[Rfam]
RNA: SAM-I/IV (S-adenosyl methionine) riboswitch aptamer
Organism: Gracilimonas sediminicola
RNA sequence: UAAGCACAUCAAGAAAUCCGCCCACCGGCGGAUUGCCAACCGACCUGCUCGGGCACGGUGGUUUAAAAGAUGCGGGAAUUCAACUACAUCGACACAU
Numbered sequence: 001u002a003a004g005c006a007c008a009u010c011a012a013g014a015a016a017u018c019c020g021c022c023c024a025c026c027g028g029c030g031g032a033u034u035g036c037c038a039a040c041c042g043a044c045c046u047g048c049u050c051g052g053g054c055a056c057g058g059u060g061g062u063u064u065a066a067a068a069g070a071u072g073c074g075g076g077a078a079u080u081c082a083a084c085u086a087c088a089u090c091g092a093c094a095c096a097u
Base pairs, nucleotide, nucleotide: 007072008071009070010069015034016033017032018031019030020029021028022027035062036061037060040058041057042056044053045052047093049091051089075081076080